[Rfam]
RNA sequence: AAUUUAGAUACGCUUAAUUCUCAAUCAUACAAAUUGAGAAGCGGGGGAACCACUUUUUUGGGGCGUGUCGAUACUUCGUAGGGAACCAUCUUUCCCGAGCCCGUCAGCUAACCUCGUCAGCCGUUAGAUGGGUCAAA
Numbered sequence: 001a002a003u004u005u006a007g008a009u010a011c012g013c014u015u016a017a018u019u020c021u022c023a024a025u026c027a028u029a030c031a032a033a034u035u036g037a038g039a040a041g042c043g044g045g046g047g048a049a050c051c052a053c054u055u056u057u058u059u060g061g062g063g064c065g066u067g068u069c070g071a072u073a074c075u076u077c078g079u080a081g082g083g084a085a086c087c088a089u090c091u092u093u094c095c096c097g098a099g100c101c102c103g104u105c106a107g108c109u110a111a112c113c114u115c116g117u118c119a120g121c122c123g124u125u126a127g128a129u130g131g132g133u134c135a136a137a
Stems, first nucleotide, its partner, number of pairs: 012121003018040008041117006051060002061102003069078003081096004
c-di-AMP riboswitch aptamer (ydaO/yuaA leader): a 137-nucleotide sequence from Brevibacillus fulvus.
About the family: This family represents a conserved RNA structure found upstream of the ydaO and yuaA genes in Bacillus subtilis and related genes in other bacteria.